[Rfam]
RNA: Bradyrhizobiaceae sRNA BjrC68
RNA sequence: CUGUAAGGUAGGAUGGGCACUGUUGCCCAUCCUGCACGGGGCCGGGGCGCAAGCUCCGGCCCCUUUUCAUCC
Number, nucleotide and partner (000 for none) at each position: 001c000002u000003g000004u000005a000006a000007g000008g000009u000010a033011g032012g031013a030014u029015g028016g027017g026018c025019a000020c000021u000022g000023u000024u000025g018026c017027c016028c015029a014030u013031c012032c011033u010034g000035c000036a000037c000038g063039g062040g061041g060042c059043c058044g057045g056046g000047g054048c053049g000050c000051a000052a000053g048054c047055u000056c045057c044058g043059g042060c041061c040062c039063c038064u000065u000066u000067u000068c000069a000070u000071c000072c000